Background: Gammaprotebacteria rimP leader: a 101-nucleotide RNA from Candidatus Erwinia haradaeae. Its family is annotated with regulation of gene expression in the Gene Ontology. On this family, see Naville and Gautheret, Genome Biol 2010: "Premature terminator analysis sheds light on a hidden world of bacterial transcriptional attenuation". The family's RNA type in Rfam is cis-regulatory leader.

[Rfam]
RNA sequence: UUCAAGUAACGGGUUACAAGCGUUGUAAUUGCAAAAACCCCGAAAUUUUUCGGGGUUUUUUUAUUAGAAAGCAGAAUAAUGGGGCAGGGUGCCCCUUUUUU
Numbered sequence: 001u002u003c004a005a006g007u008a009a010c011g012g013g014u015u016a017c018a019a020g021c022g023u024u025g026u027a028a029u030u031g032c033a034a035a036a037a038c039c040c041c042g043a044a045a046u047u048u049u050u051c052g053g054g055g056u057u058u059u060u061u062u063a064u065u066a067g068a069a070a071g072c073a074g075a076a077u078a079a080u081g082g083g084g085c086a087g088g089g090u091g092c093c094c095c096u097u098u099u100u101u
Stems, first nucleotide, its partner, number of pairs: 035058009082094004